The family of this 265-nucleotide RNA sequence from Medicago truncatula is "MIR2655 microRNA precursor family".
A search with the family's covariance model found it, with a score of 204 bits.
Gene Ontology terms of the family: RISC complex and miRNA-mediated post-transcriptional gene silencing.
Lineage of the source: Eukaryota > Euphyllophyta > Fabaceae > Trifolieae > Medicago.
Rfam 15.1 lists 892 matches to the family in 5 species.

RNA sequence: CCCAUAAGUAAUAAAAAGUCCAUUUAGAUCCGCUAACUUUAUUUAAAGUAUCAAUUUGGUCCUUUCUCUUAAUUUAAUUCAAAAAACGUUAAAUUUUGGUCUCUUAACUUAUUUAAUUAGUAUUAGUUUAAUCCCUUAACUUAUUUAAUUAGUAUUAGUUUGGUCCCUAAACUUAACAUUUUUUUAAUUAAAUUAACAGAAAGGACCAAAGUGAUACUUUAAAUAAAGUUAAGGGAUCUAAAUAGACCUUUUAUUACUUAUGGGA
Number, nucleotide and partner (000 for none) at each position: 001c000002c263003c262004a261005u260006a259007a258008g257009u000010a000011a000012u000013a000014a000015a000016a000017a000018g000019u000020c000021c000022a000023u242024u241025u240026a000027g238028a237029u236030c000031c234032g000033c000034u231035a230036a229037c228038u227039u226040u225041a224042u223043u222044u000045a220046a219047a218048g000049u000050a000051u000052c000053a000054a000055u000056u000057u000058g000059g000060u000061c000062c000063u000064u000065u000066c000067u000068c000069u000070u000071a000072a000073u000074u000075u000076a000077a000078u000079u000080c000081a000082a000083a000084a000085a000086a000087c000088g000089u000090u000091a000092a000093a000094u000095u000096u000097u000098g000099g000100u000101c000102u000103c000104u000105u000106a000107a000108c000109u000110u000111a000112u000113u000114u000115a000116a000117u000118u000119a000120g000121u000122a000123u000124u000125a000126g000127u000128u000129u000130a000131a000132u000133c000134c000135c000136u000137u000138a000139a000140c000141u000142u000143a000144u000145u000146u000147a000148a000149u000150u000151a000152g000153u000154a000155u000156u000157a000158g000159u000160u000161u000162g000163g000164u000165c000166c000167c000168u000169a000170a000171a000172c000173u000174u000175a000176a000177c000178a000179u000180u000181u000182u000183u000184u000185u000186a000187a000188u000189u000190a000191a000192a000193u000194u000195a000196a000197c000198a000199g000200a000201a000202a000203g000204g000205a000206c000207c000208a000209a000210a000211g000212u000213g000214a000215u000216a000217c000218u047219u046220u045221a000222a043223a042224u041225a040226a039227a038228g037229u036230u035231a034232a000233g000234g031235g000236a029237u028238c027239u000240a025241a024242a023243u000244a000245g000246a000247c000248c000249u000250u000251u000252u000253a000254u000255u000256a000257c008258u007259u006260a005261u004262g003263g002264g000265a000